[Rfam]
RNA sequence: AAAAGAAGCAAUGGUGCCCUCUUGAUAAAACAAGAGGGCACCAUUGCUUCUUUUUUA
Numbered sequence: 001a002a003a004a005g006a007a008g009c010a011a012u013g014g015u016g017c018c019c020u021c022u023u024g025a026u027a028a029a030a031c032a033a034g035a036g037g038g039c040a041c042c043a044u045u046g047c048u049u050c051u052u053u054u055u056u057a
Base pairs, nucleotide, nucleotide: 002053003052004051005050006049007048008047009046010045011044012043013042014041019036020035021034022033023032024031
Description
Rfam assigns this 57-nucleotide sequence to the family "Plastid-psbA-3 3UTR RNA". Its Rfam clan is "Plastid-psbA 3UTR RNA clan". A reference for the family is Richter et al. (2023), "Retrograde signaling in plants: A critical review focusing on the GUN pathway and beyond", Plant Commun. Rfam classes the family as a cis-regulatory element. From the family's description: Plastid psbA-3 is a non-coding RNA (ncRNA) present in plastids. The base pairs follow the family's consensus structure, which was predicted with LocARNA.